The family of this 291-nucleotide RNA sequence from Crocuta crocuta is "Metazoan signal recognition particle RNA". On this family, see Rosenblad et al., RNA Biol 2009: "Kinship in the SRP RNA family". Gene Ontology terms of the family: SRP-dependent cotranslational protein targeting to membrane, signal sequence recognition and signal recognition particle, endoplasmic reticulum targeting. Rfam classes the family as a non-coding RNA gene. NCBI's taxonomy places the organism under Eukaryota, Metazoa, Tetrapoda, Feliformia, Crocuta. The base pairs follow the family's consensus structure, which is taken from published work. The signal recognition particle (SRP) is a universally conserved ribonucleoprotein. It is involved in the co-translational targeting of proteins to membranes. The eukaryotic SRP consists of a 300-nucleotide 7S RNA and six proteins: SRPs 72, 68, 54, 19, 14, and 9.
[Rfam]
RNA sequence: GCCGGGCGCGGUGGCGCGCGCCUGUAGUCCCAGCUACUCGGGAGGCUGAGGCAGGAGGAUCGCUUGAGCCCAGGAGUUCUGGGCUGUCGUGCGCUAUGCCGAUCGGGUGUCCGCACUAAGUUCGGCAUCAAUAUGGUGACCUCCCGGGAGCGGGGGGCCACCAGGUUGCCUAAGGAGGGGUGAACCGGCCUAGGUCGGAAACGGAGCAGGUCAAAACUCCCGUGCAGAUCAGAAAUGGGUCAUUCUGGGGUGCCUGAGUGGCUCAGUCGGUUAAGCGUCCGACUUCAGCUC
Numbered sequence: 001g002c003c004g005g006g007c008g009c010g011g012u013g014g015c016g017c018g019c020g021c022c023u024g025u026a027g028u029c030c031c032a033g034c035u036a037c038u039c040g041g042g043a044g045g046c047u048g049a050g051g052c053a054g055g056a057g058g059a060u061c062g063c064u065u066g067a068g069c070c071c072a073g074g075a076g077u078u079c080u081g082g083g084c085u086g087u088c089g090u091g092c093g094c095u096a097u098g099c100c101g102a103u104c105g106g107g108u109g110u111c112c113g114c115a116c117u118a119a120g121u122u123c124g125g126c127a128u129c130a131a132u133a134u135g136g137u138g139a140c141c142u143c144c145c146g147g148g149a150g151c152g153g154g155g156g157g158c159c160a161c162c163a164g165g166u167u168g169c170c171u172a173a174g175g176a177g178g179g180g181u182g183a184a185c186c187g188g189c190c191u192a193g194g195u196c197g198g199a200a201a202c203g204g205a206g207c208a209g210g211u212c213a214a215a216a217c218u219c220c221c222g223u224g225c226a227g228a229u230c231a232g233a234a235a236u237g238g239g240u241c242a243u244u245c246u247g248g249g250g251u252g253c254c255u256g257a258g259u260g261g262c263u264c265a266g267u268c269g270g271u272u273a274a275g276c277g278u279c280c281g282a283c284u285u286c287a288g289c290u291c
Stems, first nucleotide, its partner, number of pairs: 001046003004023007028043003050290003054286004060281001062279001064277001067272004073268002079266009091254001093253002096251002099248001103247001105245005111239002114237002117234001120230001122228002125225004129168004134163005140157007169175002177220005187212004195204003
Dot-bracket structure: ((((((((((......)))))))....(((..........))))))...(((.((((..(.(.(..((((..((....(((((((((...(.((.((.(...(.(((((.((.((.(..(.((.((((((((.(((((.(((((((....))))))).))))).))))((...)).(((((.....((((....(((....)))....))))...))))).)))).)).)...).)))).))))).)).)))))...)))))))))))))))....).).).)))).))).